[Rfam]
RNA: Eukaryotic large subunit ribosomal RNA, nucleotides 1173 to 1598
Organism: Vidua macroura
RNA sequence: GAGUUUAACAUGUGUGCGAGUCAAAGGGUUCUACGAAACCCCUAGGCGCAGUGAAAGUGAAGUUCAUGCUGUACCUCCGCACAUACGCGGUGCAGUGUGGCGAGGUGAGAUCUCGUUGUACUCAUGACACACGCCACAGACCUUACUGGGCAUUACUGGGGCAACGAGCGCAUCACCGGCCCGUCCCAUGAUGUGGUCAUGGGUGUACUCGUGCGCGGAGUGCUUGCACAAUGCGUACGAAGCCCGUGCGUCAUCGGGGCGGAGCAUGAGCACACACGUUGAGACCCGAAAGAUGGUGAACUAUGCUUGCGUAGGUUGAAGCCAGAGGAAACUCUGGUGGAGGACCGUAGCGAUUCUGACGUGCAAAUCGAUCGUCAAACGUGAGUAUAGGGGCGAAAGACUAAUCGAACCAUCUAGUAGCUGGUU
Numbered sequence: 001g002a003g004u005u006u007a008a009c010a011u012g013u014g015u016g017c018g019a020g021u022c023a024a025a026g027g028g029u030u031c032u033a034c035g036a037a038a039c040c041c042c043u044a045g046g047c048g049c050a051g052u053g054a055a056a057g058u059g060a061a062g063u064u065c066a067u068g069c070u071g072u073a074c075c076u077c078c079g080c081a082c083a084u085a086c087g088c089g090g091u092g093c094a095g096u097g098u099g100g101c102g103a104g105g106u107g108a109g110a111u112c113u114c115g116u117u118g119u120a121c122u123c124a125u126g127a128c129a130c131a132c133g134c135c136a137c138a139g140a141c142c143u144u145a146c147u148g149g150g151c152a153u154u155a156c157u158g159g160g161g162c163a164a165c166g167a168g169c170g171c172a173u174c175a176c177c178g179g180c181c182c183g184u185c186c187c188a189u190g191a192u193g194u195g196g197u198c199a200u201g202g203g204u205g206u207a208c209u210c211g212u213g214c215g216c217g218g219a220g221u222g223c224u225u226g227c228a229c230a231a232u233g234c235g236u237a238c239g240a241a242g243c244c245c246g247u248g249c250g251u252c253a254u255c256g257g258g259g260c261g262g263a264g265c266a267u268g269a270g271c272a273c274a275c276a277c278g279u280u281g282a283g284a285c286c287c288g289a290a291a292g293a294u295g296g297u298g299a300a301c302u303a304u305g306c307u308u309g310c311g312u313a314g315g316u317u318g319a320a321g322c323c324a325g326a327g328g329a330a331a332c333u334c335u336g337g338u339g340g341a342g343g344a345c346c347g348u349a350g351c352g353a354u355u356c357u358g359a360c361g362u363g364c365a366a367a368u369c370g371a372u373c374g375u376c377a378a379a380c381g382u383g384a385g386u387a388u389a390g391g392g393g394c395g396a397a398a399g400a401c402u403a404a405u406c407g408a409a410c411c412a413u414c415u416a417g418u419a420g421c422u423g424g425u426u
Stems, first nucleotide, its partner, number of pairs: 005282005011276007020047003026041005051058002104177005112168008179265002181262003184258003190252006285424002288421001292414006301390011312378001314346004321338007350375004355371002358369002392402002